[Rfam]
RNA sequence: AGCUUGUCAAUGAUGUUUCUUACUAAAAUGUCUGAACAUAUGAACUUCAUAGUGAUUUCAGUGCAUUACUGAGAUAAGCU
Numbered sequence: 001a002g003c004u005u006g007u008c009a010a011u012g013a014u015g016u017u018u019c020u021u022a023c024u025a026a027a028a029u030g031u032c033u034g035a036a037c038a039u040a041u042g043a044a045c046u047u048c049a050u051a052g053u054g055a056u057u058u059c060a061g062u063g064c065a066u067u068a069c070u071g072a073g074a075u076a077a078g079c080u
Stems, first nucleotide, its partner, number of pairs: 002079007
The record is an 80-nucleotide RNA, which matches "Small nucleolar RNA SNORD72" in Rfam. From the family's description: snoRNA HBII-240 belongs to the CD family of snoRNAs. It is the human orthologue of the mouse MBII-240 and is predicted to guide 2'O-ribose methylation of the large 28S rRNA at residue U4590. Its family is annotated with RNA processing and nucleolus in the Gene Ontology.